[Rfam]
RNA sequence: GGAUCGGGAGGCCGCCAUUCGGGACGGUGGCCAUGAAUAGAUCCGACCACGCUGUCUCGUAUGGGCAAGAUGCUGUGGCCCGGCAGCAGUCUUG
Numbered sequence: 001g002g003a004u005c006g007g008g009a010g011g012c013c014g015c016c017a018u019u020c021g022g023g024a025c026g027g028u029g030g031c032c033a034u035g036a037a038u039a040g041a042u043c044c045g046a047c048c049a050c051g052c053u054g055u056c057u058c059g060u061a062u063g064g065g066c067a068a069g070a071u072g073c074u075g076u077g078g079c080c081c082g083g084c085a086g087c088a089g090u091c092u093u094g
Base pairs, nucleotide, nucleotide: 001044002043003042004041005040010032011031012030013029014028015027016026066094067093068092069091070090071088072087073086074085075084
The family of this 94-nucleotide RNA from Roseobacter sp. MED193 is "Rhodo-rpoB RNA".
Rfam's curators put it in the seed alignment.